[Rfam]
RNA: c-di-AMP riboswitch aptamer (ydaO/yuaA leader)
Organism: Streptomyces silvensis
RNA sequence: GCGCGGCCUCCGCCGAGUCCGACACGUUCGGAGCCGGGGACCCACCACGAUCUCUUGGGGUGAAUCGGUCCCGUACACACCCGGUACGGAACCGUAGGGCAGCCUUCCGGAUCACCCGCCCGAACCCGACAGCUAACCCGGUAGGCGGUCCACGGAAGGAGU
Numbered sequence: 001g002c003g004c005g006g007c008c009u010c011c012g013c014c015g016a017g018u019c020c021g022a023c024a025c026g027u028u029c030g031g032a033g034c035c036g037g038g039g040a041c042c043c044a045c046c047a048c049g050a051u052c053u054c055u056u057g058g059g060g061u062g063a064a065u066c067g068g069u070c071c072c073g074u075a076c077a078c079a080c081c082c083g084g085u086a087c088g089g090a091a092c093c094g095u096a097g098g099g100c101a102g103c104c105u106u107c108c109g110g111a112u113c114a115c116c117c118g119c120c121c122g123a124a125c126c127c128g129a130c131a132g133c134u135a136a137c138c139c140g141g142u143a144g145g146c147g148g149u150c151c152a153c154g155g156a157a158g159g160a161g162u
Stems, first nucleotide, its partner, number of pairs: 011147004018032003033142006043057002058127003066094004097121004